[Rfam]
RNA: mir-737 microRNA precursor family
Organism: Gasterosteus aculeatus
RNA sequence: UGGUUUUUUUAGGUUUUGAUUUUUGGACUUGGAUGAGAAAAUCUAAAUCUAAAGAAAAUA
Numbered sequence: 001u002g003g004u005u006u007u008u009u010u011a012g013g014u015u016u017u018g019a020u021u022u023u024u025g026g027a028c029u030u031g032g033a034u035g036a037g038a039a040a041a042u043c044u045a046a047a048u049c050u051a052a053a054g055a056a057a058a059u060a
Base pairs, nucleotide, nucleotide: 004057005056006055007054008053009052010051011050012049013048014047015046016045018043019042020041021040022039023038024037